Rfam assigns this 74-nucleotide RNA from Siccirubricoccus deserti to the family "tRNA". Rfam classes the family as a transfer RNA. Pairs were carried over by alignment from the consensus structure, which is taken from published work.

[Rfam]
RNA sequence: GCCUGGGUAGCUCAGCUGGUUAGAGCACGGCACUCAUAAUGCCGGGGUCGCCGGUUCAAGUCCGGCCCCAGGUA
Numbered sequence: 001g002c003c004u005g006g007g008u009a010g011c012u013c014a015g016c017u018g019g020u021u022a023g024a025g026c027a028c029g030g031c032a033c034u035c036a037u038a039a040u041g042c043c044g045g046g047g048u049c050g051c052c053g054g055u056u057c058a059a060g061u062c063c064g065g066c067c068c069c070a071g072g073u074a
Base pairs, nucleotide, nucleotide: 001073002072003071004070005069006068007067010026011025012024013023028044029043030042031041032040050066051065052064053063054062